[Rfam]
RNA: Bacterial RNase P class A
RNA sequence: CAAGUAAAUCGCCUUAUCGCGUCUUAUUUAUAAGAUGAGGAAAGUCCGGACACCACAGUGCAAUUAUAGUGGUUAACAGCCACCAGUCGUGAGGCUAGGAAAAGUGCAACAGAAAGUAUGUACAGGUCAUGCUGUAGUGAAACCAGGUAAACUCUAUAUGGUGCAAUGUCAUGUAUACUAACGUUUGAGCGUGCACGCGCGAUUGUUAGAGGGUAGGCAGCUAAAGUGUGCCAGUAAUGGUACACGUAGAUAAAUGAUAAGGGCUCGUAAGAGUACAGAAUCCGGCUUAUAGAUUUACUUAAAUA
Numbered sequence: 001c002a003a004g005u006a007a008a009u010c011g012c013c014u015u016a017u018c019g020c021g022u023c024u025u026a027u028u029u030a031u032a033a034g035a036u037g038a039g040g041a042a043a044g045u046c047c048g049g050a051c052a053c054c055a056c057a058g059u060g061c062a063a064u065u066a067u068a069g070u071g072g073u074u075a076a077c078a079g080c081c082a083c084c085a086g087u088c089g090u091g092a093g094g095c096u097a098g099g100a101a102a103a104g105u106g107c108a109a110c111a112g113a114a115a116g117u118a119u120g121u122a123c124a125g126g127u128c129a130u131g132c133u134g135u136a137g138u139g140a141a142a143c144c145a146g147g148u149a150a151a152c153u154c155u156a157u158a159u160g161g162u163g164c165a166a167u168g169u170c171a172u173g174u175a176u177a178c179u180a181a182c183g184u185u186u187g188a189g190c191g192u193g194c195a196c197g198c199g200c201g202a203u204u205g206u207u208a209g210a211g212g213g214u215a216g217g218c219a220g221c222u223a224a225a226g227u228g229u230g231c232c233a234g235u236a237a238u239g240g241u242a243c244a245c246g247u248a249g250a251u252a253a254a255u256g257a258u259a260a261g262g263g264c265u266c267g268u269a270a271g272a273g274u275a276c277a278g279a280a281u282c283c284g285g286c287u288u289a290u291a292g293a294u295u296u297a298c299u300u301a302a303a304u305a
Stems, first nucleotide, its partner, number of pairs: 002300009011290001012262007020037007042288003046285005051163004058196003063159001065158004069083005084098001085096004099154002104152002106148002167219004178209005188203001190201003226245008